[Rfam]
RNA sequence: UGCGUCGGUGGGACGGGAGGCCUUUCCCAAGAAACGGGAGACUGAAAGAACCCCCACCAAACCCCACCCCUCCCGCCCGCCCGCCGAGUGCCCUCACCCACGCGGGUGAACAUCACCAACUCAGCUGGAUUUCGGGCUGGUUGCCUGCCCUACGCUCGGCGCAACACCCGCAGACAUGCGACGGCCCUCGCCGGGACUGGCAUCCCAAUGCGAGGGCCUGACCACCGAGGAAGGUCUCAGGCUUCCUG
Numbered sequence: 001u002g003c004g005u006c007g008g009u010g011g012g013a014c015g016g017g018a019g020g021c022c023u024u025u026c027c028c029a030a031g032a033a034a035c036g037g038g039a040g041a042c043u044g045a046a047a048g049a050a051c052c053c054c055c056a057c058c059a060a061a062c063c064c065c066a067c068c069c070c071u072c073c074c075g076c077c078c079g080c081c082c083g084c085c086g087a088g089u090g091c092c093c094u095c096a097c098c099c100a101c102g103c104g105g106g107u108g109a110a111c112a113u114c115a116c117c118a119a120c121u122c123a124g125c126u127g128g129a130u131u132u133c134g135g136g137c138u139g140g141u142u143g144c145c146u147g148c149c150c151u152a153c154g155c156u157c158g159g160c161g162c163a164a165c166a167c168c169c170g171c172a173g174a175c176a177u178g179c180g181a182c183g184g185c186c187c188u189c190g191c192c193g194g195g196a197c198u199g200g201c202a203u204c205c206c207a208a209u210g211c212g213a214g215g216g217c218c219u220g221a222c223c224a225c226c227g228a229g230g231a232a233g234g235u236c237u238c239a240g241g242c243u244u245c246c247u248g
Base pairs, nucleotide, nucleotide: 007226008225009224010223016081017080019078094109095108096107097106098105099104124160125159126158127157128156183218184217185216186215187214189212190211191210193206194205195204196203229246230245231244232243233242